[Rfam]
RNA sequence: UGUGCACCUAUUUGUAAGUCGCUCUGGAUAAGAGCGUCUGCUAAAUGACGUAAA
Numbered sequence: 001u002g003u004g005c006a007c008c009u010a011u012u013u014g015u016a017a018g019u020c021g022c023u024c025u026g027g028a029u030a031a032g033a034g035c036g037u038c039u040g041c042u043a044a045a046u047g048a049c050g051u052a053a054a
Stems, first nucleotide, its partner, number of pairs: 013043001014041003020036006
The record is a 54-nucleotide RNA sequence from Coregonus sp. 'balchen', which matches "UnaL2 LINE 3' element" in Rfam.
It scores 72 bits against the family's covariance model.
From the family's description: The eel long interspersed element (LINE) UnaL2 and its partner short interspersed element (SINE) share a conserved 3' tail containing a stem-loop that is critical for their retrotransposition. Presumably, the first step of retrotransposition is the recognition of their 3' tails by UnaL2-encoded reverse transcriptase. The solution structure of a 17-nucleotide RNA derived from the 3' tail of UnaL2 was determined by NMR.
The base pairs follow the family's consensus structure, which is taken from published work.